[Rfam]
Nucleotides: 101
Stems, first nucleotide, its partner, number of pairs: 006020002009017001060095004064086001067083003071079002
Number, partner (000 for none) and nucleotide at each position: 001000c002000u003000c004000a005000a006020u007019u008000g009017g010000u011000g012000c013000a014000a015000a016000u017009c018000a019007a020006a021000u022000c023000a024000c025000c026000u027000u028000a029000a030000u031000u032000u033000u034000u035000u036000u037000u038000u039000a040000a041000u042000u043000u044000a045000a046000g047000a048000u049000g050000a051000a052000a053000a054000a055000a056000a057000c058000g059000u060095u061094c062093c063092c064086a065000a066000u067083g068082g069081u070000a071079a072078c073000a074000a075000a076000a077000a078072g079071u080000g081069a082068u083067c084000u085000a086064u087000u088000a089000a090000g091000c092063g093062g094061g095060a096000a097000a098000a099000a100000u101000c

The family of this 101-nucleotide RNA from Vicia sepium is "Plastid-rps12 3UTR RNA".
NCBI's taxonomy places the organism under Eukaryota, Spermatophyta, Mesangiospermae, Fabaceae, Vicia.
Rfam describes the family as follows. Plastid rpl20 is a non-coding RNA (ncRNA) recognised in plastids. It was found in the three prime untranslated region (3UTR) of rps12 gene, its 3UTR location sugest a role in transcript maduration.
The base pairs follow the family's consensus structure, which was predicted with LocARNA.